The family of this 92-nucleotide RNA sequence from Nyctereutes procyonoides is "mir-8799 microRNA precursor family". The family is grouped with related families in Rfam's "mir-8791 microRNA precursor clan". Taxonomically the source falls in Nyctereutes (Eukaryota, Teleostomi, Dipnotetrapodomorpha, Canidae). The family's consensus secondary structure was predicted with RNAalifold.

[Rfam]
RNA sequence: UGGGGGAGUGCCAGAUCUUGGGCUGUGUCCCCUGGUGUCCUGGGCUCCGGGGUCUGUGCAGCUGGAUCGCGCUCCCGGCCCGACAGCCCCCU
Numbered sequence: 001u002g003g004g005g006g007a008g009u010g011c012c013a014g015a016u017c018u019u020g021g022g023c024u025g026u027g028u029c030c031c032c033u034g035g036u037g038u039c040c041u042g043g044g045c046u047c048c049g050g051g052g053u054c055u056g057u058g059c060a061g062c063u064g065g066a067u068c069g070c071g072c073u074c075c076c077g078g079c080c081c082g083a084c085a086g087c088c089c090c091c092u
Stems, first nucleotide, its partner, number of pairs: 002091005010084001014079001017078002020075003024071004028066002031064001032061002035059004042054001044053003
Background: Rfam links the family to the GO terms RISC complex and miRNA-mediated post-transcriptional gene silencing.